[Rfam]
RNA sequence: UCCGGGGGAAGCUCACUGCCGAGGUCACCCACUGGGUGCGCGUCACCCGAAGCCCGCCUCGGGGAAGGUCUGAGGGAAGGGCCGCGUCACGGCUCUAGCAGAGCCCCGCCCACGAAGGGGGCGGGUGAGCCACCAGCAAGGGGGGGCGCCGCGUCAUGACGGUGGCUCAAACCUAUAGGGCAGGAGAAACCGUAGCAGGUUCACGUCAGUGUAUGACGUCGAACCCCGGUGGAUGCCCGUGGCCCCCGCGGUGCUUUGAGACAGACUCACGGCCGGCGAUCGCUGAGUCCAAUGGGUGAGGUGGGGCAGCGCCCUACAACCCAAUUCAGACUACUCUCCCCCGGA
Dot-bracket structure: ((((..(((..((((((..(((((.........(((((.....)))))........)))))........[[[[[.....((((.......(((((.....)))))((((((.......))))))(((((.(.............(((((((((.............................................................................................)))))))))........).)))))))))....................))))))(((((((...))))))).......]]]]].......)))..))))
Overview: Rfam assigns this 345-nucleotide RNA sequence from Psophia crepitans to the family "Nuclear RNase P". Rfam describes the family as follows. Ribonuclease P (RNase P) is a ubiquitous endoribonuclease, found in archaea, bacteria and eukarya as well as chloroplasts and mitochondria. Its best characterised activity is the generation of mature 5'-ends of tRNAs by cleaving the 5'-leader elements of precursor-tRNAs. Cellular RNase Ps are ribonucleoproteins. RNA from bacterial RNase Ps retains its catalytic activity in the absence of the protein subunit, i.e. it is a ribozyme. It scores 159 bits against the family's covariance model. Taxonomically the source falls in Psophia (Eukaryota, Opisthokonta, Euteleostomi, Archelosauria).